The record is a 73-nucleotide RNA sequence from Dendrobium nobile, which matches "tRNA" in Rfam. Its family is annotated with triplet codon-amino acid adaptor activity in the Gene Ontology. By type it is a transfer RNA. A search with the family's covariance model found it, with a score of 71 bits. The family's consensus secondary structure is taken from published work.

RNA sequence: GAUCGCAUAGCGAAGUGGAUAUCGCGUUAGACUCCGAAUCUAAAGGUCGUGGGUUCAAAUCCCACUGUGAUCG
Numbered sequence: 001g002a003u004c005g006c007a008u009a010g011c012g013a014a015g016u017g018g019a020u021a022u023c024g025c026g027u028u029a030g031a032c033u034c035c036g037a038a039u040c041u042a043a044a045g046g047u048c049g050u051g052g053g054u055u056c057a058a059a060u061c062c063c064a065c066u067g068u069g070a071u072c073g
Stems, first nucleotide, its partner, number of pairs: 001072007010025004027043005049065005
Dot-bracket structure: (((((((..((((........)))).(((((.......))))).....(((((.......)))))))))))).